[Rfam]
RNA sequence: CUUCAACGAGCCCAGCCACAGCGGCCGUUCGGCAGGACGCUCCUGCCCGUAGGUGGCCUGGAGCGCCUGCACCUC
Numbered sequence: 001c002u003u004c005a006a007c008g009a010g011c012c013c014a015g016c017c018a019c020a021g022c023g024g025c026c027g028u029u030c031g032g033c034a035g036g037a038c039g040c041u042c043c044u045g046c047c048c049g050u051a052g053g054u055g056g057c058c059u060g061g062a063g064c065g066c067c068u069g070c071a072c073c074u075c
Base pairs, nucleotide, nucleotide: 015025016024017023032070033069038065039064043060045058047056048055049054

The family of this 75-nucleotide RNA sequence from Kitasatospora aureofaciens is "ASpks TB sRNA". By type it is an antisense RNA.